RNA sequence: ACCAUCACAAAGGGGUGCCUAUUGGCUGAGAUAGGGCGUUAGCUCGGACCCUUGGAACCUGAUCUUGUUAAUUGCAAGCGGAGGGAUUGUGAUGGAGUAGAGA
Number, nucleotide and partner (000 for none) at each position: 001a000002c000003c000004a000005u000006c091007a090008c089009a088010a087011a052012g051013g050014g049015g000016u046017g026018c025019c024020u000021a000022u000023u000024g019025g018026c017027u000028g000029a000030g000031a000032u000033a000034g045035g044036g043037c042038g000039u000040u000041a000042g037043c036044u035045c034046g016047g000048a000049c014050c013051c012052u011053u000054g000055g000056a000057a000058c084059c083060u082061g000062a000063u000064c078065u077066u076067g075068u000069u000070a000071a000072u000073u000074g000075c067076a066077a065078g064079c000080g000081g000082a060083g059084g058085g000086a000087u010088u009089g008090u007091g006092a000093u000094g000095g000096a000097g000098u000099a000100g000101a000102g000103a000
Record summary:
Rfam assigns this 103-nucleotide RNA from Vagococcus humatus to the family "TPP riboswitch aptamer (THI element)". The organism belongs to Vagococcus, within Bacteria. Gene Ontology term of the family: thiamine pyrophosphate binding. Vitamin B(1) in its active form thiamin pyrophosphate (TPP) is an essential coenzyme that is synthesised by coupling of pyrimidine and thiazole moieties in bacteria.